[Rfam]
RNA sequence: AUGCCAUGAUGAGGGAAUUUUUGGAGUAAGUCCUUGAAUCGAGUCCAUGCCUCGUAGAAGGUUUCGCCUUGACGUUUUUGGAACGCCAAGAUGUUAUUCCUUAGCUU
Dot-bracket structure: (.((.(..................................................((.(............).))........................)..)).)
RNA: Plant small nucleolar RNA R71